Rfam assigns this 154-nucleotide RNA sequence from Caballeronia glathei to the family "Group II catalytic intron D1-D4-7". A search with the family's covariance model found it, with a score of 123 bits. Rfam's curators write: Group II introns are found in rRNA, tRNA and mRNA of organelles in fungi, plants and protists, and also in mRNA in bacteria. The base pairs follow the family's consensus structure. NCBI's taxonomy places the organism under Bacteria, Pseudomonadota, Betaproteobacteria, Burkholderiaceae, Caballeronia.

Nucleotides: 154
Base pairs, nucleotide, nucleotide: 002019003018005016006015007014028069029068030067031066032065033060034059035058036057037056039054040053041052042051043050044049083096084095085094086093087092097124098123099122100121107114108113128147129146130145131144132143
Number, partner (000 for none) and nucleotide at each position: 001000c002019c003018c004000a005016c006015u007014a008000u009000g010000c011000g012000a013000c014007u015006a016005g017000c018003g019002g020000u021000a022000g023000c024000c025000u026000a027000g028069g029068a030067a031066g032065a033060c034059a035058u036057g037056c038000g039054u040053c041052a042051c043050u044049g045000g046000u047000a048000a049044c050043g051042g052041u053040g054039g055000g056037g057036u058035g059034u060033g061000a062000a063000g064000c065032u066031c067030u068029u069028c070000c071000g072000a073000c074000a075000a076000u077000g078000u079000a080000g081000c082000c083096c084095c085094c086093g087092g088000a089000a090000g091000u092087u093086c094085g095084g096083g097124c098123a099122g100121a101000c102000u103000c104000a105000a106000g107114c108113c109000g110000u111000g112000a113108g114107g115000c116000a117000u118000g119000c120000g121100u122099c123098u124097g125000g126000a127000u128147a129146c130145u131144c132143c133000u134000a135000g136000c137000a138000g139000c140000a141000a142000u143132g144131g145130g146129g147128u148000u149000g150000a151000g152000g153000a154000g